Shown here is a 114-nucleotide RNA from Soehngenia longivitae, a member of the family "FMN riboswitch aptamer (RFN element)".
Lineage of the source: Bacteria > Bacillati > Bacillota > Tissierellia > Soehngenia.
The base pairs follow the family's consensus structure, which is taken from published work.
Its family is annotated with FMN binding in the Gene Ontology.
[Rfam]
RNA sequence: GAGUAUCUUCAGGGCGAGGUGCAAUUCCUCACCGGUGGUAAAGCCCACGAGCCGAAAGGUUGAUCUGGUGAAAUUCCAGGGCCGACAGUAUAGUCUGGAUGAAAGAAGAUUUUA
Numbered sequence: 001g002a003g004u005a006u007c008u009u010c011a012g013g014g015c016g017a018g019g020u021g022c023a024a025u026u027c028c029u030c031a032c033c034g035g036u037g038g039u040a041a042a043g044c045c046c047a048c049g050a051g052c053c054g055a056a057a058g059g060u061u062g063a064u065c066u067g068g069u070g071a072a073a074u075u076c077c078a079g080g081g082c083c084g085a086c087a088g089u090a091u092a093g094u095c096u097g098g099a100u101g102a103a104a105g106a107a108g109a110u111u112u113u114a
Base pairs, nucleotide, nucleotide: 003112005110006109007108008107009106010105017029018028019027031094032093033084034083035048036047037046038045043082044081051060052059053058064080065079066078067077068076086097087096088095